[Rfam]
This 701-nucleotide RNA sequence from Leucogyrophana pinastri belongs to the Rfam family "Nuclear RNase P". Lineage of the source: Eukaryota > Basidiomycota > Agaricomycetidae > Boletales > Leucogyrophana pinastri. It scores 77 bits against the family's covariance model.
RNA sequence: CCAGCUCGAAGGCCACGAUGCUCAUCACACACAGGAUGGUCCCCAUCCGAUCUCGUGAGCGGGCUAAGGUCUGAGUAUUCGAAUCCCCCUCGAUAGGCUCUAGCAGGGCCCUGUCGUAAUCGACAGAGCGGCAUACCAGCAAAGCAGCUUUUUUCUCGCUUGCCCAAGAUCCUAUUCUGCAGGGGAGGCUUUGAGAAUAUUGGCUUUGAAAGGUGUCGCGGGGAUUAGGCAAGGCUUUGCUUCCGUUGGGUAUCAUACGACUUUGCCUUUAUCUCGCUAAGUGUCCCUCGUAUGGGGCGCCUUGAACGCGGGCAGGCUUGCAACCGGGAAUUCUCCAUGUUGUUGGUGUCGUUCUCGGUCUCAAAUUAGAUAUGGGAUCCCGCUGCGGUCUGUCGCAUGCAGUCGCCACCUGUGUGUUCAGGGCUGUUGGCUUGGGCCUCAAUAUGUUGAAGAGGUCGUUAGAGCGCCACGGCAACGCAUAAAAAUGGACUUCCUAGGUACACAGUCCUCGUCUUCGCGCGAAAAGAAGGCCUUUUGGCUGGAGCUCAUGCGGCUUCGUGUGGUGGAAUAAGAAGCAUACUCCUGGCGAACGAGAAGGCGAACGCAUGCAUUCCUUCUAGGUGUCCUUGUCCUUUAGUGCACUUCGUGGCUCGCGGUUCCUUGUGGACCGUGAAACUCGAUUCAGACUAUUCUCGGACUGG
Numbered sequence: 001c002c003a004g005c006u007c008g009a010a011g012g013c014c015a016c017g018a019u020g021c022u023c024a025u026c027a028c029a030c031a032c033a034g035g036a037u038g039g040u041c042c043c044c045a046u047c048c049g050a051u052c053u054c055g056u057g058a059g060c061g062g063g064c065u066a067a068g069g070u071c072u073g074a075g076u077a078u079u080c081g082a083a084u085c086c087c088c089c090u091c092g093a094u095a096g097g098c099u100c101u102a103g104c105a106g107g108g109c110c111c112u113g114u115c116g117u118a119a120u121c122g123a124c125a126g127a128g129c130g131g132c133a134u135a136c137c138a139g140c141a142a143a144g145c146a147g148c149u150u151u152u153u154u155c156u157c158g159c160u161u162g163c164c165c166a167a168g169a170u171c172c173u174a175u176u177c178u179g180c181a182g183g184g185g186a187g188g189c190u191u192u193g194a195g196a197a198u199a200u201u202g203g204c205u206u207u208g209a210a211a212g213g214u215g216u217c218g219c220g221g222g223g224a225u226u227a228g229g230c231a232a233g234g235c236u237u238u239g240c241u242u243c244c245g246u247u248g249g250g251u252a253u254c255a256u257a258c259g260a261c262u263u264u265g266c267c268u269u270u271a272u273c274u275c276g277c278u279a280a281g282u283g284u285c286c287c288u289c290g291u292a293u294g295g296g297g298c299g300c301c302u303u304g305a306a307c308g309c310g311g312g313c314a315g316g317c318u319u320g321c322a323a324c325c326g327g328g329a330a331u332u333c334u335c336c337a338u339g340u341u342g343u344u345g346g347u348g349u350c351g352u353u354c355u356c357g358g359u360c361u362c363a364a365a366u367u368a369g370a371u372a373u374g375g376g377a378u379c380c381c382g383c384u385g386c387g388g389u390c391u392g393u394c395g396c397a398u399g400c401a402g403u404c405g406c407c408a409c410c411u412g413u414g415u416g417u418u419c420a421g422g423g424c425u426g427u428u429g430g431c432u433u434g435g436g437c438c439u440c441a442a443u444a445u446g447u448u449g450a451a452g453a454g455g456u457c458g459u460u461a462g463a464g465c466g467c468c469a470c471g472g473c474a475a476c477g478c479a480u481a482a483a484a485a486u487g488g489a490c491u492u493c494c495u496a497g498g499u500a501c502a503c504a505g506u507c508c509u510c511g512u513c514u515u516c517g518c519g520c521g522a523a524a525a526g527a528a529g530g531c532c533u534u535u536u537g538g539c540u541g542g543a544g545c546u547c548a549u550g551c552g553g554c555u556u557c558g559u560g561u562g563g564u565g566g567a568a569u570a571a572g573a574a575g576c577a578u579a580c581u582c583c584u585g586g587c588g589a590a591c592g593a594g595a596a597g598g599c600g601a602a603c604g605c606a607u608g609c610a611u612u613c614c615u616u617c618u619a620g621g622u623g624u625c626c627u628u629g630u631c632c633u634u635u636a637g638u639g640c641a642c643u644u645c646g647u648g649g650c651u652c653g654c655g656g657u658u659c660c661u662u663g664u665g666g667a668c669c670g671u672g673a674a675a676c677u678c679g680a681u682u683c684a685g686a687c688u689a690u691u692c693u694c695g696g697a698c699u700g701g
Base pairs, nucleotide, nucleotide: 001701002700003699004698007695008694009693012650013649014648015647016646017645018644020060021059022058023057024056034048035047036046037045038044071685072684073683074682075681086223087222088221089220096110097109098108099107100106111126112125113124114123115122116121128219129218130217131216132215133214134213147204148203149202651673652672653671654670655669656668657667658666659665